[Rfam]
RNA sequence: GAACCGCACAAGCGCUGUCCUCGACAGCACCCAGGUAGCCAGAACCUUCAAGGCUACGCCACUCCGUGGUGGUUCACCCCCAAGUGCGAUUAGCGUCCGGCGGCUCGCACGGUCACCGCGAUGUGAUGGAUGC
Numbered sequence: 001g002a003a004c005c006g007c008a009c010a011a012g013c014g015c016u017g018u019c020c021u022c023g024a025c026a027g028c029a030c031c032c033a034g035g036u037a038g039c040c041a042g043a044a045c046c047u048u049c050a051a052g053g054c055u056a057c058g059c060c061a062c063u064c065c066g067u068g069g070u071g072g073u074u075c076a077c078c079c080c081c082a083a084g085u086g087c088g089a090u091u092a093g094c095g096u097c098c099g100g101c102g103g104c105u106c107g108c109a110c111g112g113u114c115a116c117c118g119c120g121a122u123g124u125g126a127u128g129g130a131u132g133c
Stems, first nucleotide, its partner, number of pairs: 014028006035057006043074004058070005106132002112127005
A member of the RNA family "radC RNA" from Pseudomonas salomonii, 133 nucleotides long.
Rfam 15.1 lists 500 matches to the family in 142 species.
The match comes from Rfam's covariance-model search (75 bits).
The organism belongs to Pseudomonas, within Bacteria.